[Rfam]
RNA sequence: ACCCCGUUAAUAACACUCUGGGACCGACCCCCUUUCCUUCGUGGAUUGGAAUAUCCAUGGUCUGUCCCUAUUUUAGUAUAACGGAGAUUGAAUACAUGACCCUCUACUCACCGAGGCGACUUGAUUGUGUGGUCGCUUUGGUCCUUUUUUGAGGUCAACAU
Numbered sequence: 001a002c003c004c005c006g007u008u009a010a011u012a013a014c015a016c017u018c019u020g021g022g023a024c025c026g027a028c029c030c031c032c033u034u035u036c037c038u039u040c041g042u043g044g045a046u047u048g049g050a051a052u053a054u055c056c057a058u059g060g061u062c063u064g065u066c067c068c069u070a071u072u073u074u075a076g077u078a079u080a081a082c083g084g085a086g087a088u089u090g091a092a093u094a095c096a097u098g099a100c101c102c103u104c105u106a107c108u109c110a111c112c113g114a115g116g117c118g119a120c121u122u123g124a125u126u127g128u129g130u131g132g133u134c135g136c137u138u139u140g141g142u143c144c145u146u147u148u149u150u151g152a153g154g155u156c157a158a159c160a161u
Base pairs, nucleotide, nucleotide: 007081008080009079020068021067022066023065024064026062027061028060029059031049032048098156099155100154101153111141112140113139114138116136117135118134119133120132121131
Source information:
This 161-nucleotide RNA from Venturia inaequalis belongs to the Rfam family "Small nucleolar RNA snR80". The family's consensus secondary structure was predicted with WAR. For this family Rfam cites "Genome-wide searching for pseudouridylation guide snoRNAs: analysis of the Saccharomyces cerevisiae genome" (Schattner et al., Nucleic Acids Res, 2004). Rfam classes the family as an H/ACA-box small nucleolar RNA. Its Rfam clan is "SNORA28 clan".